Record summary
This 591-nucleotide part of an RNA from Funneliformis mosseae belongs to the Rfam family "Eukaryotic large subunit ribosomal RNA".
RNA sequence: AUCAGCGGGGAAAGAAGACCCUGUUGAGCUUGACUCUAGUUUGACAUUCGUGAAGGGGCUUAAAGGGUGUAGAAUAGGUGGGAGUAUUUCGAUACGACAGUGAAAUACCACUACCUUUACUGUCCCUUUACUUACUCAAUUAAGUGGAAUUCAUCAACUUAAAGAAUUAACGAUCCAUAUUUGAGGACAUUGUCAGGUGGGGAGUUUGGCUGGGGCGGCACAUCUGCUAAAAGAUAACGCAGGUGUCCUAAGGGUAGCUCAUUGAGAACAGCAAUCUCAAGUAGAAUAAAAGGGUAAAAGCUACCUUGAUUUUGAUUUUCAGUGUGAAUACAUACCAUGAAAGUGUGGCCUAUCGAUCCUUUAUUUCCUCGAAAUUUGAGGUUAGAGGUGUCAGAAAAGUUACCACAGGGAUAACUGGUUUGUGGCAGCCAAGCGUUCAUAGCGACGUUGCUUUUUGAUCCUUCGAUGUCGGCUCUUCCUAUCAUAUUGAUGCACAGGUCAGUAAGCGUUGGAUUGUUCACCCACUAACAGGGAACGUGAGCUGGGUUUAGACCGUCGUGAGACAGGUUAGUUUUACCCUACUGAUGAAGU
Number, nucleotide and partner (000 for none) at each position: 001a586002u585003c584004a583005g582006c000007g000008g580009g579010g578011a000012a575013a574014g000015a000016a000017g000018a000019c000020c409021c408022u407023g406024u000025u405026g404027a401028g400029c399030u398031u397032g000033a205034c204035u203036c202037u000038a000039g000040u197041u196042u195043g194044a193045c192046a191047u000048u000049c000050g131051u130052g129053a128054a127055g126056g125057g124058g123059c122060u000061u119062a118063a117064a116065g115066g114067g000068u000069g000070u000071a000072g000073a000074a000075u000076a000077g112078g111079u110080g109081g108082g000083a000084g095085u094086a000087u000088u000089u000090c000091g000092a000093u000094a085095c084096g000097a000098c000099a000100g000101u000102g000103a000104a000105a000106u000107a000108c081109c080110a079111c078112u077113a000114c066115c065116u064117u063118u062119a061120c000121u000122g059123u058124c057125c056126c055127u054128u053129u052130a051131c050132u000133u000134a000135c185136u184137c183138a182139a181140u000141u000142a000143a000144g000145u177146g176147g175148a174149a000150u000151u000152c000153a000154u000155c000156a000157a000158c000159u000160u000161a000162a000163a000164g000165a000166a000167u000168u000169a000170a000171c000172g000173a000174u148175c147176c146177a145178u000179a000180u000181u139182u138183g137184a136185g135186g000187a000188c000189a000190u000191u046192g045193u044194c043195a042196g041197g040198u000199g000200g000201g000202g036203a035204g034205u033206u000207u000208g221209g219210c218211u217212g000213g000214g000215g000216c000217g211218g210219c209220a000221c208222a244223u243224c242225u241226g240227c239228u000229a000230a000231a000232a000233g000234a000235u000236a000237a000238c000239g227240c226241a225242g224243g223244u222245g000246u000247c348248c347249u000250a000251a000252g000253g305254g304255u303256a302257g301258c300259u285260c284261a000262u280263u279264g278265a277266g276267a275268a000269c000270a000271g000272c000273a000274a000275u267276c266277u265278c264279a263280a262281g000282u000283a000284g260285a259286a295287u294288a000289a000290a000291a000292g000293g000294g287295u286296a000297a000298a000299a000300g258301c257302u256303a255304c254305c253306u000307u000308g000309a000310u334311u000312u332313u000314g000315a329316u328317u327318u326319u000320c000321a000322g000323u000324g000325u000326g318327a317328a316329u315330a000331c000332a312333u000334a310335c000336c345337a344338u343339g000340a000341a000342a000343g338344u337345g336346u000347g248348g247349c000350c000351u000352a000353u000354c000355g000356a000357u000358c000359c387360u386361u385362u384363a383364u000365u000366u000367c381368c380369u379370c378371g000372a000373a000374a000375u000376u000377u000378g370379a369380g368381g367382u000383u363384a362385g361386a360387g359388g000389u000390g000391u000392c000393a000394g000395a000396a000397a031398a030399g029400u028401u027402a000403c000404c026405a025406c023407a022408g021409g020410g000411a000412u000413a000414a000415c000416u000417g000418g459419u458420u457421u000422g456423u000424g452425g451426c450427a449428g448429c447430c000431a000432a000433g443434c442435g000436u000437u000438c000439a000440u000441a000442g434443c433444g000445a000446c000447g429448u428449u427450g426451c425452u424453u000454u000455u000456u422457g420458a419459u418460c000461c000462u000463u000464c000465g000466a000467u000468g000469u000470c545471g543472g542473c541474u540475c537476u534477u533478c532479c531480u530481a000482u000483c508484a000485u000486a503487u502488u501489g500490a499491u498492g000493c000494a000495c000496a000497g000498g491499u490500c489501a488502g487503u486504a000505a000506g000507c000508g483509u000510u524511g523512g522513a000514u520515u000516g000517u000518u000519c000520a514521c000522c512523c511524a510525c000526u000527a000528a000529c000530a480531g479532g478533g477534a476535a000536c000537g475538u000539g000540a474541g473542c472543u471544g000545g470546g000547u000548u000549u000550a000551g569552a568553c567554c566555g564556u563557c562558g000559u000560g000561a000562g557563a556564c555565a000566g554567g553568u552569u551570a000571g000572u000573u000574u013575u012576a000577c000578c010579c009580u008581a000582c005583u004584g003585a002586u001587g000588a000589a000590g000591u000
Annotation: The match comes from Rfam's covariance-model search (3108 bits).